[Rfam]
RNA sequence: GGAAAUUGUCUCUUUUAGUAUUUGUCCAGCAGGUUUCCUUUAAAAGGAAACCCCU
Numbered sequence: 001g002g003a004a005a006u007u008g009u010c011u012c013u014u015u016u017a018g019u020a021u022u023u024g025u026c027c028a029g030c031a032g033g034u035u036u037c038c039u040u041u042a043a044a045a046g047g048a049a050a051c052c053c054c055u
Stems, first nucleotide, its partner, number of pairs: 032052008
The family of this 55-nucleotide sequence from Sinocyclocheilus anshuiensis is "U7 small nuclear RNA". From the family's description: Animal histone pre-mRNAs are spliced by a different mechanism than nuclear pre-mRNAs and self-splicing introns.